The family of this 211-nucleotide sequence from Drosophila kikkawai is "U12 minor spliceosomal RNA".
The match comes from Rfam's covariance-model search (57 bits).
Rfam classes the family as a spliceosomal small nuclear RNA.
RNA sequence: GUGCCUGAAACUAAUGAGUAAGGAAAACCAAACAAGGCCUUGCUAACCGCUUGGCAGUAUUGGCUUCAAGGCAGGGGGAUGUGUGCUUCAUUCAUCCCCCGAAGCUCAAUUUUUGUAAGGGCACAGGUCGUCCCCUUCGCCGUCAGGUGAACGGUGUCCGGCGGCGCUAGCUGGGCACCUACUUUGUGUCCGGGGAUCGCUGCUGGGUGCC
Numbered sequence: 001g002u003g004c005c006u007g008a009a010a011c012u013a014a015u016g017a018g019u020a021a022g023g024a025a026a027a028c029c030a031a032a033c034a035a036g037g038c039c040u041u042g043c044u045a046a047c048c049g050c051u052u053g054g055c056a057g058u059a060u061u062g063g064c065u066u067c068a069a070g071g072c073a074g075g076g077g078g079a080u081g082u083g084u085g086c087u088u089c090a091u092u093c094a095u096c097c098c099c100c101g102a103a104g105c106u107c108a109a110u111u112u113u114u115g116u117a118a119g120g121g122c123a124c125a126g127g128u129c130g131u132c133c134c135c136u137u138c139g140c141c142g143u144c145a146g147g148u149g150a151a152c153g154g155u156g157u158c159c160g161g162c163g164g165c166g167c168u169a170g171c172u173g174g175g176c177a178c179c180u181a182c183u184u185u186g187u188g189u190c191c192g193g194g195g196a197u198c199g200c201u202g203c204u205g206g207g208u209g210c211c
Base pairs, nucleotide, nucleotide: 004023005022006021008019037055038054039053042050058104060102061101062100153211154210155209156208157207158206159205161203162202164200165199166198168196174190175189176188177187178186